[Rfam]
RNA sequence: GAUGGCCUGCGGCGUUGGUGAAUGCCGAUAAAGUUGUCGAUCGUAACUACGUGCGAUUGGGAACAGCCAACGGCUGGCGGUGAGCAAGCCGGGCAUCUUAAUCAGAUGAUUUCCGGAGACUCUAAAGCCAGUGCGCCCGUUCCCACCUGGUUUACCAGAGGUCGCAUACUGAGGUAAAACGGCGUUGCGGGUCAAUU
Numbered sequence: 001g002a003u004g005g006c007c008u009g010c011g012g013c014g015u016u017g018g019u020g021a022a023u024g025c026c027g028a029u030a031a032a033g034u035u036g037u038c039g040a041u042c043g044u045a046a047c048u049a050c051g052u053g054c055g056a057u058u059g060g061g062a063a064c065a066g067c068c069a070a071c072g073g074c075u076g077g078c079g080g081u082g083a084g085c086a087a088g089c090c091g092g093g094c095a096u097c098u099u100a101a102u103c104a105g106a107u108g109a110u111u112u113c114c115g116g117a118g119a120c121u122c123u124a125a126a127g128c129c130a131g132u133g134c135g136c137c138c139g140u141u142c143c144c145a146c147c148u149g150g151u152u153u154a155c156c157a158g159a160g161g162u163c164g165c166a167u168a169c170u171g172a173g174g175u176a177a178a179a180c181g182g183c184g185u186u187g188c189g190g191g192u193c194a195a196u197u
Stems, first nucleotide, its partner, number of pairs: 003194013018180002035168003038164004059144003063140002066137001068135001073132006084120001089116005
The family of this 197-nucleotide RNA from Gloeobacter kilaueensis is "6S / SsrS RNA".
The literature on the family includes a 2000 paper in Cell by Wassarman and Storz, "6S RNA regulates E. coli RNA polymerase activity".
Taxonomically the source falls in Gloeobacter kilaueensis (Bacteria, Cyanobacteriota, Gloeobacterales, Gloeobacter).
Rfam classes the family as a non-coding RNA gene.
A search with the family's covariance model found it, with a score of 65 bits.